RNA sequence: CUCUUAUCAAGAGUGGCGGAGGGAUCAGGCCCUGUGAAGCCCGGCAACAGCUAGUUGAACCUAGAAAUGUGCUAAUUCCUGCAGUGGAUUCACUGAGAGAUGAGGG
Numbered sequence: 001c002u003c004u005u006a007u008c009a010a011g012a013g014u015g016g017c018g019g020a021g022g023g024a025u026c027a028g029g030c031c032c033u034g035u036g037a038a039g040c041c042c043g044g045c046a047a048c049a050g051c052u053a054g055u056u057g058a059a060c061c062u063a064g065a066a067a068u069g070u071g072c073u074a075a076u077u078c079c080u081g082c083a084g085u086g087g088a089u090u091c092a093c094u095g096a097g098a099g100a101u102g103a104g105g106g
Base pairs, nucleotide, nucleotide: 001106002105003104004103005102006101007100008099013042015041016040017039021032022031023030026081027080028079029078043073044072045071046070048069049068051064052063053062077098082095083094084093085092086091
This 106-nucleotide RNA from Clostridium botulinum belongs to the Rfam family "SAM riboswitch aptamer (S box leader)". Pairs were carried over by alignment from the consensus structure, which is taken from published work. Rfam's curators put it in the seed alignment. Lineage of the source: Bacteria > Bacillati > Bacillota > Clostridia > Clostridium botulinum F.